[Rfam]
Shown here is a 150-nucleotide RNA from Escherichia coli, a member of the family "sok antitoxin (CssrC)". On this family, see Kawano et al., Mol Microbiol 2007: "An antisense RNA controls synthesis of an SOS-induced toxin evolved from an antitoxin". Also identified in Shigella as CssrC. By type it is an antitoxin RNA. Taxonomically the source falls in Escherichia coli O157:H7 (Bacteria, Gammaproteobacteria, Enterobacteriaceae, Escherichia). The family has 91 seed sequences and 305 matches in Rfam 15.1.
RNA sequence: GGGUGCUUGAGGCUAUCUGCCUCGGGCAUGAACACCAACGGCAGAUAGAUAAAAGCCCCACCCGACUAUAAAUCGAAGUGAGGCCCCUAUAUGCUCGUCACAUAUAGAUUGCCUCUUACGGACCGAAAGGUCAAGGAGAAGCAGGCUAUG
Numbered sequence: 001g002g003g004u005g006c007u008u009g010a011g012g013c014u015a016u017c018u019g020c021c022u023c024g025g026g027c028a029u030g031a032a033c034a035c036c037a038a039c040g041g042c043a044g045a046u047a048g049a050u051a052a053a054a055g056c057c058c059c060a061c062c063c064g065a066c067u068a069u070a071a072a073u074c075g076a077a078g079u080g081a082g083g084c085c086c087c088u089a090u091a092u093g094c095u096c097g098u099c100a101c102a103u104a105u106a107g108a109u110u111g112c113c114u115c116u117u118a119c120g121g122a123c124c125g126a127a128a129g130g131u132c133a134a135g136g137a138g139a140a141g142c143a144g145g146c147u148a149u150g
Stems, first nucleotide, its partner, number of pairs: 001059003005056004011050001013048009026035001060079002064074002067071001080115005087107007119141001124136001